[Rfam]
Nucleotides: 084
Stems, first nucleotide, its partner, number of pairs: 001084008012028004019070004031053001032047006058076005
Number, partner (000 for none) and nucleotide at each position: 001084u002083g003082a004081a005080u006079u007078u008077g009000a010000a011000g012028u013027u014026g015025g016000a017000a018000a019070u020069g021068g022067c023000a024000c025015c026014c027013a028012a029000a030000g031053c032047g033046c034045u035044a036043c037042u038000u039000u040000a041000a042037a043036g044035u045034a046033g047032u048000a049000a050000c051000u052000a053031g054000a055000g056000a057000u058076g059075u060074a061073g062072g063000a064000u065000a066000c067022g068021c069020c070019g071000c072062c073061c074060u075059a076058c077008c078007a079006a080005g081004u082003u083002u084001a
The family of this 84-nucleotide RNA is "skipping-rope RNA". It is one of the family's seed sequences. It is annotated as a small RNA.